[Rfam]
Nucleotides: 058
Stems, first nucleotide, its partner, number of pairs: 009053006020043004027037003
Number, partner (000 for none) and nucleotide at each position: 001000u002000g003000u004000u005000c006000a007000g008000a009053g010052a011051u012050u013049g014048u015000c016000a017000a018000u019000g020043u021042c022041g023040u024000u025000a026000c027037c028036u029035a030000c031000a032000c033000a034000g035029u036028a037027g038000a039000u040023a041022c042021g043020g044000g045000a046000a047000u048014a049013c050012a051011a052010u053009u054000g055000u056000u057000a058000a
The record is a 58-nucleotide RNA sequence, which matches "Transposase-1 RNA" in Rfam. It is annotated as a small RNA.